The record is a 62-nucleotide sequence from Saimiri boliviensis, which matches "U7 small nuclear RNA" in Rfam.
Animal histone pre-mRNAs are spliced by a different mechanism than nuclear pre-mRNAs and self-splicing introns. This processing involves the U7 snRNP, which contains only one RNA species: U7. The 5' end of U7 RNA is thought to base-pair to a conserved spacer element downstream of the cleavage site in histone pre-mRNA. This family contains a number of annotated U7 pseudogenes.
[Rfam]
RNA sequence: AAGGGUUACAGUGCUUUUAGAAUUUGUCUAGCAAGCUUUCCGUUUUUGGCUGGAAAACCUCA
Numbered sequence: 001a002a003g004g005g006u007u008a009c010a011g012u013g014c015u016u017u018u019a020g021a022a023u024u025u026g027u028c029u030a031g032c033a034a035g036c037u038u039u040c041c042g043u044u045u046u047u048g049g050c051u052g053g054a055a056a057a058c059c060u061c062a
Stems, first nucleotide, its partner, number of pairs: 035058001037056006044049001
Dot-bracket structure: ..................................(.((((((.(....).)))))).)....